[Rfam]
RNA: mir-1422 microRNA precursor family
RNA sequence: AUGAUUCUGGUUUUAGUCAUGAAAGCGUUUUUUCAGUAUUAAUAAUUGGGAAAUCGUUGUCAUGACUGAGCCCAUGAUCAU
Numbered sequence: 001a002u003g004a005u006u007c008u009g010g011u012u013u014u015a016g017u018c019a020u021g022a023a024a025g026c027g028u029u030u031u032u033u034c035a036g037u038a039u040u041a042a043u044a045a046u047u048g049g050g051a052a053a054u055c056g057u058u059g060u061c062a063u064g065a066c067u068g069a070g071c072c073c074a075u076g077a078u079c080a081u
Stems, first nucleotide, its partner, number of pairs: 003079004008074003013069010029053005